This 138-nucleotide RNA sequence from Galemys pyrenaicus belongs to the Rfam family "Small nucleolar RNA SNORD10". It is annotated as a C/D-box small nucleolar RNA. A reference for the family is Huttenhofer et al. (2001), "RNomics: an experimental approach that identifies 201 candidates for novel, small, non-messenger RNAs in mouse", EMBO J. Gene Ontology terms of the family: RNA processing and nucleolus. NCBI's taxonomy places the organism under Eukaryota, Craniata, Gnathostomata, Talpidae, Galemys. It scores 116 bits against the family's covariance model.
[Rfam]
RNA sequence: GCUCUGUGAUGAACCCCAUGCGUGUCAUCUGAGCCUGGCUCCCUUGCCUCAGCCCCAGGUAGUGUUCUACCACCUAGGGCUACUGUCCAGCCUGGCAGGGGGUCCCAGGCAAAGGAUCAGUCAUUGUAUUCUGAGAGC
Numbered sequence: 001g002c003u004c005u006g007u008g009a010u011g012a013a014c015c016c017c018a019u020g021c022g023u024g025u026c027a028u029c030u031g032a033g034c035c036u037g038g039c040u041c042c043c044u045u046g047c048c049u050c051a052g053c054c055c056c057a058g059g060u061a062g063u064g065u066u067c068u069a070c071c072a073c074c075u076a077g078g079g080c081u082a083c084u085g086u087c088c089a090g091c092c093u094g095g096c097a098g099g100g101g102g103u104c105c106c107a108g109g110c111a112a113a114g115g116a117u118c119a120g121u122c123a124u125u126g127u128a129u130u131c132u133g134a135g136a137g138c
Stems, first nucleotide, its partner, number of pairs: 001138004042100007